[Rfam]
RNA sequence: AUAAAAAAAUCCCUACAGUACAUACUGUAGGGUCCUUCAAUACCUCACAAAUAGGCUGAAGGCAAAGGGAGAGGAGAAACCGGAGGAAGAACUUAUGGGGAAACGUAAGUCUUCUCCGCGG
Numbered sequence: 001a002u003a004a005a006a007a008a009a010u011c012c013c014u015a016c017a018g019u020a021c022a023u024a025c026u027g028u029a030g031g032g033u034c035c036u037u038c039a040a041u042a043c044c045u046c047a048c049a050a051a052u053a054g055g056c057u058g059a060a061g062g063c064a065a066a067g068g069g070a071g072a073g074g075a076g077a078a079a080c081c082g083g084a085g086g087a088a089g090a091a092c093u094u095a096u097g098g099g100g101a102a103a104c105g106u107a108a109g110u111c112u113u114c115u116c117c118g119c120g121g
Stems, first nucleotide, its partner, number of pairs: 011032009033069005042057001044055002047052001081118004086114004091110005
A member of the RNA family "ylbH leader" from Metabacillus harenarius, 121 nucleotides long. This family is a putative regulatory RNA structure that is found upstream of the ylbH gene in B. subtilis and related low GC Gram-positive bacteria. NCBI's taxonomy places the organism under Bacteria, Bacillota, Bacilli, Caryophanales, Metabacillus. The match comes from Rfam's covariance-model search (112 bits). The literature on the family includes a 2004 paper in Proc Natl Acad Sci U S A by Barrick et al., "New RNA motifs suggest an expanded scope for riboswitches in bacterial genetic control". It is annotated as a cis-regulatory leader. The base pairs follow the family's consensus structure.